The family of this 139-nucleotide RNA sequence from Tetraodon nigroviridis is "Small nucleolar RNA SNORA84".
RNA sequence: GCCUUGUGGUUCCUAGAGUCAGCUUGUUCCUCGGUGCUGAACUGUGGGGUUUUGUCAACAGGCGCACAUUAGUUCUGUGAUAUUAAGCAUGGGAGCUGCCACCAUAGCAGCCUCCCACAGCCCGGUCGCAGAUACACGC
Numbered sequence: 001g002c003c004u005u006g007u008g009g010u011u012c013c014u015a016g017a018g019u020c021a022g023c024u025u026g027u028u029c030c031u032c033g034g035u036g037c038u039g040a041a042c043u044g045u046g047g048g049g050u051u052u053u054g055u056c057a058a059c060a061g062g063c064g065c066a067c068a069u070u071a072g073u074u075c076u077g078u079g080a081u082a083u084u085a086a087g088c089a090u091g092g093g094a095g096c097u098g099c100c101a102c103c104a105u106a107g108c109a110g111c112c113u114c115c116c117a118c119a120g121c122c123c124g125g126u127c128g129c130a131g132a133u134a135c136a137c138g139c
Stems, first nucleotide, its partner, number of pairs: 001063004007054002011049005017043001019040005075131001077129005087121002090117003094113002096110004
The base pairs follow the family's consensus structure, which was predicted with WAR. The literature on the family includes a 2002 paper in Curr Biol by Marker et al., "Experimental RNomics: identification of 140 candidates for small non-messenger RNAs in the plant Arabidopsis thaliana". Taxonomically the source falls in Tetraodon (Eukaryota, Chordata, Osteoglossocephalai, Tetraodontoidei).